[Rfam]
RNA sequence: GGGAUACGUCCGCUCAUAUCCGUAUGGCAGGAACGGGGGACCCAAGAUGUACGGGCCACAACCAGUGGCCCUUGGGGUUAAGUCGCUUUCAUUUCCGUCCCUAGGACUGAAGCGGCCGGGUGAACUCCCAUCCGAACCCGACAGCUCACCCCGCAGGCAUGGGAGAGGCAACCA
Numbered sequence: 001g002g003g004a005u006a007c008g009u010c011c012g013c014u015c016a017u018a019u020c021c022g023u024a025u026g027g028c029a030g031g032a033a034c035g036g037g038g039g040a041c042c043c044a045a046g047a048u049g050u051a052c053g054g055g056c057c058a059c060a061a062c063c064a065g066u067g068g069c070c071c072u073u074g075g076g077g078u079u080a081a082g083u084c085g086c087u088u089u090c091a092u093u094u095c096c097g098u099c100c101c102u103a104g105g106a107c108u109g110a111a112g113c114g115g116c117c118g119g120g121u122g123a124a125c126u127c128c129c130a131u132c133c134g135a136a137c138c139c140g141a142c143a144g145c146u147c148a149c150c151c152c153g154c155a156g157g158c159a160u161g162g163g164a165g166a167g168g169c170a171a172c173c174a
Base pairs, nucleotide, nucleotide: 012158013157014156019031020030034153035152036151037150038149043074044073045072046071075139076138077137083115084114085113086112087111088110089109118133119132120131121130
Rfam assigns this 174-nucleotide RNA sequence from Arthrobacter echini to the family "c-di-AMP riboswitch aptamer (ydaO/yuaA leader)".
It scores 58 bits against the family's covariance model.